RNA sequence: GCGCGGGGACGGCCCCGCCCAUUCCUUGGCACCAUCGUCCGGGACGGCCCGG
Numbered sequence: 001g002c003g004c005g006g007g008g009a010c011g012g013c014c015c016c017g018c019c020c021a022u023u024c025c026u027u028g029g030c031a032c033c034a035u036c037g038u039c040c041g042g043g044a045c046g047g048c049c050c051g052g
Base pairs, nucleotide, nucleotide: 001020003018004017005016006015007014008013039052040051041050042049043048